[Rfam]
RNA sequence: AAUAUAAUAUCGCUGAGUUCUUUGCGGAAGCGGGGGAACCGAUUUUUAGGGGUGAAUCCAUUUAGGAGGGGCUACCCUUUAGCCCUAACCCGACAGCUAACCUCGUAAGCGUACAAAGGGGGAUUA
Numbered sequence: 001a002a003u004a005u006a007a008u009a010u011c012g013c014u015g016a017g018u019u020c021u022u023u024g025c026g027g028a029a030g031c032g033g034g035g036g037a038a039c040c041g042a043u044u045u046u047u048a049g050g051g052g053u054g055a056a057u058c059c060a061u062u063u064a065g066g067a068g069g070g071g072c073u074a075c076c077c078u079u080u081a082g083c084c085c086u087a088a089c090c091c092g093a094c095a096g097c098u099a100a101c102c103u104c105g106u107a108a109g110c111g112u113a114c115a116a117a118g119g120g121g122g123a124u125u126a
Stems, first nucleotide, its partner, number of pairs: 011111004018029003030106006040049001050091003058066002069085004

Rfam assigns this 126-nucleotide sequence from Proteiniborus ethanoligenes to the family "c-di-AMP riboswitch aptamer (ydaO/yuaA leader)". The match comes from Rfam's covariance-model search (102 bits). Lineage of the source: Bacteria > Bacillati > Clostridia > Eubacteriales > Proteiniborus.